Background
Rfam assigns this 73-nucleotide RNA from Pararhodospirillum oryzae to the family "tRNA". Gene Ontology term of the family: triplet codon-amino acid adaptor activity.
RNA sequence: GCCGGAUUAGCUCAGCUGGUAGAGCAGCUGAUUUGUAAUCAGAAGGUCGCGGGUUCGAUUCCUGCAUCCGGCA
Numbered sequence: 001g002c003c004g005g006a007u008u009a010g011c012u013c014a015g016c017u018g019g020u021a022g023a024g025c026a027g028c029u030g031a032u033u034u035g036u037a038a039u040c041a042g043a044a045g046g047u048c049g050c051g052g053g054u055u056c057g058a059u060u061c062c063u064g065c066a067u068c069c070g071g072c073a
Stems, first nucleotide, its partner, number of pairs: 001072007010025004028042004049065005
The organism belongs to Pararhodospirillum, within Bacteria. The family's RNA type in Rfam is transfer RNA. About the family: Transfer RNA (tRNA) molecules are approximately 80 nucleotides in length.